Small nucleolar RNA SNORD56: a 73-nucleotide RNA from Electrophorus electricus.
By type it is a C/D-box small nucleolar RNA.
Pairs were carried over by alignment from the consensus structure, which was predicted with PFOLD.
Gene Ontology terms of the family: nucleolus and RNA processing.
A reference for the family is Galardi et al. (2002), "Purified box C/D snoRNPs are able to reproduce site-specific 2'-O-methylation of target RNA in vitro", Mol Cell Biol.
NCBI's taxonomy places the organism under Eukaryota, Craniata, Gnathostomata, Gymnotiformes, Electrophorus.
RNA sequence: UUGCUGUGAUGCUCUUAUUUUUCGUCAACAGCAUUCCACCUCGAGUGGAUGUUGAGAAAAUGAAACUGAGCAA
Dot-bracket structure: .(((...((((...........))))...........................................))).